Background: U1 spliceosomal RNA: a 161-nucleotide RNA from Megalops atlanticus. Gene Ontology terms of the family: pre-mRNA 5'-splice site binding, U1 snRNP and mRNA 5'-splice site recognition. The family has 100 seed sequences and 40,184 matches in Rfam 15.1. The organism belongs to Megalops, within Eukaryota. By type it is a spliceosomal small nuclear RNA.
RNA sequence: AUACUUACCUGGCAGGGGAGAUACCAUGAUCAAGAAGGUGGUUCACCCAGGGUGAGGCUCAGUCAUUGCACUCCGGCUGUGCUGACCCCUGCGAAUUCCCCAAAUGUGGGAAUCUCGACUGCAUAAUUUCUGCUAGUGGGGACUCAUUCGCGCUCUCCCCU
Number, nucleotide and partner (000 for none) at each position: 001a000002u000003a000004c000005u000006u000007a000008c000009c000010u000011g000012g122013c121014a120015g119016g048017g047018g046019a000020g044021a043022u000023a042024c041025c040026a039027u038028g000029a000030u000031c000032a000033a000034g000035a000036a000037g000038g027039u026040g025041g024042u023043u021044c020045a000046c018047c017048c016049a090050g089051g088052g087053u000054g086055a000056g083057g082058c081059u000060c079061a078062g077063u076064c075065a000066u000067u000068g000069c000070a000071c000072u000073c000074c000075g064076g063077c062078u061079g060080u000081g058082c057083u056084g000085a000086c054087c052088c051089c050090u049091g000092c117093g116094a115095a113096u112097u111098c000099c109100c108101c000102a000103a000104a000105u000106g000107u000108g100109g099110g000111a097112a096113u095114c000115u094116c093117g092118a000119c015120u014121g013122c012123a000124u000125a000126a000127u000128u000129u000130c000131u000132g000133c000134u000135a000136g000137u000138g160139g159140g158141g157142a156143c000144u000145c152146a000147u000148u000149c000150g000151c000152g145153c000154u000155c000156u142157c141158c140159c139160c138161u000
Pairs were carried over by alignment from the consensus structure, which is taken from published work.